This 78-nucleotide RNA sequence from Gallus gallus belongs to the Rfam family "mir-17 microRNA precursor family". Gene Ontology terms of the family: miRNA-mediated post-transcriptional gene silencing and RISC complex. The organism belongs to Gallus, within Eukaryota.
[Rfam]
RNA sequence: UCUUGUAGCACUAAAGUGCUUAUAGUGCAGGUAGUGUUCACUAAUCUACUGCAUUAUAAGCACUUAAAGUACUGCUAG
Numbered sequence: 001u002c003u004u005g006u007a008g009c010a011c012u013a014a015a016g017u018g019c020u021u022a023u024a025g026u027g028c029a030g031g032u033a034g035u036g037u038u039c040a041c042u043a044a045u046c047u048a049c050u051g052c053a054u055u056a057u058a059a060g061c062a063c064u065u066a067a068a069g070u071a072c073u074g075c076u077a078g
Stems, first nucleotide, its partner, number of pairs: 005075004010070003014065015030050005
From the family's description: This family represents the microRNA (miRNA) precursor mir-17, family, which includes mir-20, mir-91, and mir-103. miRNAs are transcribed as ~70nt precursors (modelled here) and subsequently processed by the Dicer enzyme to give a ~22nt product. In this case the mature sequence comes from the 3' arm of the precursor. The extents of the hairpin precursors are not generally known and are estimated based on hairpin prediction.